[Rfam]
RNA sequence: GGCCGGCAUAGCCCGACGGGGCGAAAAGCGGACUUCCCAUCCGCCUUGCCGGCCAUCUAUUUAACGG
Numbered sequence: 001g002g003c004c005g006g007c008a009u010a011g012c013c014c015g016a017c018g019g020g021g022c023g024a025a026a027a028g029c030g031g032a033c034u035u036c037c038c039a040u041c042c043g044c045c046u047u048g049c050c051g052g053c054c055a056u057c058u059a060u061u062u063a064a065c066g067g
Base pairs, nucleotide, nucleotide: 001054002053003052004051005050006049007048008047011022012021013020014019028044029043030042031041035067036066
The family of this 67-nucleotide RNA sequence from Thiopseudomonas denitrificans is "int-alpA RNA". A search with the family's covariance model found it, with a score of 63 bits. About the family: Acidobacteria (1 example), Planctomycetes (1 example), Proteobacteria. The base pairs follow the family's consensus structure, which is taken from published work. Rfam 15.1 lists 577 matches to the family in 491 species. The source organism's lineage runs through Bacteria, Pseudomonadota, Gammaproteobacteria, Pseudomonadales and Thiopseudomonas.